[Rfam]
RNA sequence: UUCCGUUUUUUGGCACUAGCACAUUUUUGUGUUUCGAUGCUACGACAAAAAUUGUGGUAGUGUCAAGCAAUAGGAA
Numbered sequence: 001u002u003c004c005g006u007u008u009u010u011u012g013g014c015a016c017u018a019g020c021a022c023a024u025u026u027u028u029g030u031g032u033u034u035c036g037a038u039g040c041u042a043c044g045a046c047a048a049a050a051a052u053u054g055u056g057g058u059a060g061u062g063u064c065a066a067g068c069a070a071u072a073g074g075a076a
Stems, first nucleotide, its partner, number of pairs: 004073001007070002010066008019058002022056003027051002030048001